[Rfam]
RNA sequence: GAAAAUAAGGGAGCAAUAACAAAUUUCUUGUUCUAUCAAGAGGGCGUUAUUGCCCCUUU
Numbered sequence: 001g002a003a004a005a006u007a008a009g010g011g012a013g014c015a016a017u018a019a020c021a022a023a024u025u026u027c028u029u030g031u032u033c034u035a036u037c038a039a040g041a042g043g044g045c046g047u048u049a050u051u052g053c054c055c056c057u058u059u
Stems, first nucleotide, its partner, number of pairs: 007059005013053006025042006